[Rfam]
RNA sequence: UAACCUUCAAACAGAUCAAGUGUAGUAUCUGUUCUUUUCAGUUUAAUCUCUGAAACGAGUCUACGGACUCAUUCAAGAUUAUUCUUAUUUUUGGCAUCAGUCGGGCGGCCGCUCUGCUUGCAGAUGUCGCUCGGCACAGUGUCCUUGGUAUUGCACUGCCUCCAAGUGACGCGACCUCAC
Dot-bracket structure: (...........)......................((((((........)))))).(((((....))))).............................((((((((.....((((....))))...))))))))...((((((((((.............))))).)))))........
Numbered sequence: 001u002a003a004c005c006u007u008c009a010a011a012c013a014g015a016u017c018a019a020g021u022g023u024a025g026u027a028u029c030u031g032u033u034c035u036u037u038u039c040a041g042u043u044u045a046a047u048c049u050c051u052g053a054a055a056c057g058a059g060u061c062u063a064c065g066g067a068c069u070c071a072u073u074c075a076a077g078a079u080u081a082u083u084c085u086u087a088u089u090u091u092u093g094g095c096a097u098c099a100g101u102c103g104g105g106c107g108g109c110c111g112c113u114c115u116g117c118u119u120g121c122a123g124a125u126g127u128c129g130c131u132c133g134g135c136a137c138a139g140u141g142u143c144c145u146u147g148g149u150a151u152u153g154c155a156c157u158g159c160c161u162c163c164a165a166g167u168g169a170c171g172c173g174a175c176c177u178c179a180c
Stems, first nucleotide, its partner, number of pairs: 001013001036055006057070005100135008113124004139172005144166005